[Rfam]
RNA: FMN riboswitch aptamer (RFN element)
RNA sequence: GUUCGUCUUCAGGGGCAGGGUGUAAUUCCCGACCGGUGGUUAUAGUCCACGACUCGUUUUUAACGAUUGAAUUGGUGUAAUUCCAAUACCGACAGUAUAGUCUGGAUAAAGAAGAUAGGG
Number, nucleotide and partner (000 for none) at each position: 001g000002u000003u118004c000005g116006u115007c114008u113009u112010c111011a000012g000013g000014g000015g000016c000017a000018g030019g029020g028021u000022g000023u000024a000025a000026u000027u000028c020029c019030c018031g000032a101033c100034c091035g090036g050037u049038g048039g047040u000041u000042a000043u000044a000045g089046u088047c039048c038049a037050c036051g000052a000053c000054u066055c065056g000057u000058u000059u000060u000061u000062a000063a000064c000065g055066a054067u000068u000069g000070a000071a087072u086073u085074g084075g083076u000077g000078u000079a000080a000081u000082u000083c075084c074085a073086a072087u071088a046089c045090c035091g034092a000093c104094a103095g102096u000097a000098u000099a000100g033101u032102c095103u094104g093105g000106a000107u000108a000109a000110a000111g010112a009113a008114g007115a006116u005117a000118g003119g000120g000